[Rfam]
RNA: MIR6274 microRNA precursor family
Organism: Prunus yedoensis
RNA sequence: GGGGAGCAUUGUUAUGCUAUCUCCGGCCAAUAACACAAUGACAUGUGUGGAAAAGUUGUCCUACAUAUCAUUGCGUUAUUGGCCGAGGAUAGCAAAAAGUGAUAUCCUC
Numbered sequence: 001g002g003g004g005a006g007c008a009u010u011g012u013u014a015u016g017c018u019a020u021c022u023c024c025g026g027c028c029a030a031u032a033a034c035a036c037a038a039u040g041a042c043a044u045g046u047g048u049g050g051a052a053a054a055g056u057u058g059u060c061c062u063a064c065a066u067a068u069c070a071u072u073g074c075g076u077u078a079u080u081g082g083c084c085g086a087g088g089a090u091a092g093c094a095a096a097a098a099g100u101g102a103u104a105u106c107c108u109c
Stems, first nucleotide, its partner, number of pairs: 002108004012097002015094006022087001024085011036073006043066002047064004052059001